[Rfam]
RNA: MIR397 microRNA precursor family
Organism: Octopus sinensis
RNA sequence: AGAAAGAAUGGCGCUGAACGAAGAUUUAACAAAAUUCCUUUAUUUUAUUUAUUUAUUUCGAAAAUAAAAUAAAGGAAUUUUGUUAAAUCUUCGUUCAGCUCCAUUCUUU
Dot-bracket structure: .....((((((.((((((((((((((((.(((...............................................))).)))))))))))))))).))))))...